[Rfam]
RNA sequence: GGCGAUAAACGCGCGGAGAUAGGCGGAUCGGACCCGGGUGCGAUGCCCGGCGGCUCCACCAGGUGUCAGCUGUCAGGUUUCAGGUGUCAGAUCAUUGGCUGGCGCCUGGCGGCUUCACCGGAGACAGACGUCAGGUUCAGCCUUUGCUGAGACCUGACAGCUGGCACCCGACACCUGAAAGGGGCCGAAAUAGGAUCGACGGACGUUGAAGGCCGAGGCUUUUGCUCGGGUGGUCCCGUUACAGGCCGAACAGCAUAGUUGCCAAUGACAACACUGCUGAAGGUUUCGCCCUCGCCGCGUAA
Numbered sequence: 001g002g003c004g005a006u007a008a009a010c011g012c013g014c015g016g017a018g019a020u021a022g023g024c025g026g027a028u029c030g031g032a033c034c035c036g037g038g039u040g041c042g043a044u045g046c047c048c049g050g051c052g053g054c055u056c057c058a059c060c061a062g063g064u065g066u067c068a069g070c071u072g073u074c075a076g077g078u079u080u081c082a083g084g085u086g087u088c089a090g091a092u093c094a095u096u097g098g099c100u101g102g103c104g105c106c107u108g109g110c111g112g113c114u115u116c117a118c119c120g121g122a123g124a125c126a127g128a129c130g131u132c133a134g135g136u137u138c139a140g141c142c143u144u145u146g147c148u149g150a151g152a153c154c155u156g157a158c159a160g161c162u163g164g165c166a167c168c169c170g171a172c173a174c175c176u177g178a179a180a181g182g183g184g185c186c187g188a189a190a191u192a193g194g195a196u197c198g199a200c201g202g203a204c205g206u207u208g209a210a211g212g213c214c215g216a217g218g219c220u221u222u223u224g225c226u227c228g229g230g231u232g233g234u235c236c237c238g239u240u241a242c243a244g245g246c247c248g249a250a251c252a253g254c255a256u257a258g259u260u261g262c263c264a265a266u267g268a269c270a271a272c273a274c275u276g277c278u279g280a281a282g283g284u285u286u287c288g289c290c291c292u293c294g295c296c297g298c299g300u301a302a
Stems, first nucleotide, its partner, number of pairs: 001226005014215003024205002028202003034050005051187007227238004
permuted transfer-messenger RNA: a 302-nucleotide RNA from a Pseudomonadota bacterium. Bacterial tmRNA, also known as 10Sa RNA or SsrA, is named for its dual tRNA and mRNA-like properties. Its role is to liberate the mRNA from a stalled ribosome. To accomplish this part of the tmRNA is used as a reading frame that ends in a translation stop signal. The broken mRNA is replaced in the ribosome by the tmRNA and translation of the tmRNA leads to addition of a proteolysis tag to the incomplete protein enabling recognition by a protease. Rfam classes the family as a non-coding RNA gene. Taxonomically the source falls in Pseudomonadota (Bacteria, Pseudomonadati).